[Rfam]
Nucleotides: 126
Base pairs, nucleotide, nucleotide: 003052004051005050006049007048015040016039017038018037019036020035022033023032024031077107078106079105080104083101084100085099
Number, partner (000 for none) and nucleotide at each position: 001000a002000a003052g004051c005050a006049g007048g008000a009000a010000a011000u012000g013000u014000u015040a016039c017038a018037a019036u020035a021000c022033a023032a024031c025000u026000g027000u028000a029000g030000u031024g032023u033022u034000u035020u036019a037018u038017u039016g040015u041000c042000g043000u044000u045000c046000c047000c048007c049006c050005u051004g052003c053000u054000u055000a056000g057000a058000g059000c060000a061000a062000c063000u064000g065000a066000u067000g068000c069000a070000u071000a072000c073000u074000a075000u076000c077107u078106c079105u080104g081000c082000a083101u084100g085099g086000c087000a088000u089000g090000a091000u092000u093000u094000c095000a096000u097000a098000g099085c100084c101083a102000g103000a104080c105079a106078g107077a108000g109000a110000c111000g112000c113000u114000u115000g116000g117000c118000c119000u120000c121000a122000g123000a124000c125000a126000u
A member of the RNA family "Small nucleolar RNA SNORA63" from Erinaceus europaeus, 126 nucleotides long.
NCBI's taxonomy places the organism under Eukaryota, Deuterostomia, Euteleostomi, Tetrapoda, Erinaceus.
It is annotated as an H/ACA-box small nucleolar RNA.
The match comes from Rfam's covariance-model search (96 bits).
For this family Rfam cites "Three small nucleolar RNAs that are involved in ribosomal RNA precursor processing" (Mishra and Eliceiri, Proc Natl Acad Sci U S A, 1997).
The family's consensus secondary structure was predicted with PFOLD.